[Rfam]
RNA sequence: CUAUCGAGGUAAAUAUAAGUGCCUCCUCUUUAUAGUAAUGUAAAGUGUAAAACUUGGCUAUAUCGGUGAAACUCCAAACCGUGAAGGUCGGUGGACGAUACCGAGGAAAGACUUAUUUAUUAACUAAGGAUAAAUAAGAAUCCGUAACGACUACACGCCAAGCCCCUUGUAUAAGUUAUAUAAGGGUGAAGAUAUAGUCUGACCUCAUAGGAAACUAUGAG
Numbered sequence: 001c002u003a004u005c006g007a008g009g010u011a012a013a014u015a016u017a018a019g020u021g022c023c024u025c026c027u028c029u030u031u032a033u034a035g036u037a038a039u040g041u042a043a044a045g046u047g048u049a050a051a052a053c054u055u056g057g058c059u060a061u062a063u064c065g066g067u068g069a070a071a072c073u074c075c076a077a078a079c080c081g082u083g084a085a086g087g088u089c090g091g092u093g094g095a096c097g098a099u100a101c102c103g104a105g106g107a108a109a110g111a112c113u114u115a116u117u118u119a120u121u122a123a124c125u126a127a128g129g130a131u132a133a134a135u136a137a138g139a140a141u142c143c144g145u146a147a148c149g150a151c152u153a154c155a156c157g158c159c160a161a162g163c164c165c166c167u168u169g170u171a172u173a174a175g176u177u178a179u180a181u182a183a184g185g186g187u188g189a190a191g192a193u194a195u196a197g198u199c200u201g202a203c204c205u206c207a208u209a210g211g212a213a214a215c216u217a218u219g220a221g
Stems, first nucleotide, its partner, number of pairs: 006025006030042001053162004058157001063104006073095004105143002113136001118132004147200001149199005164186009206219005
A member of the RNA family "Group I catalytic intron" from Bacillus sp. T33-2, 221 nucleotides long.
Rfam describes the family as follows. Group I catalytic introns are large self-splicing ribozymes. They catalyse their own excision from mRNA, tRNA and rRNA precursors in a wide range of organisms. The core secondary structure consists of 9 paired regions (P1-P9). These fold to essentially two domains - the P4-P6 domain (formed from the stacking of P5, P4, P6 and P6a helices) and the P3-P9 domain (formed from the P8, P3, P7 and P9 helices). The secondary structure mark-up for this family represents only this conserved core. Group I catalytic introns often have long ORFs inserted in loop regions. The window size for this search is chosen to minimise search time and catch the small examples. A larger window size will find more matches.
A search with the family's covariance model found it, with a score of 87 bits.
The family has 12 seed sequences and 5,602 matches in Rfam 15.1.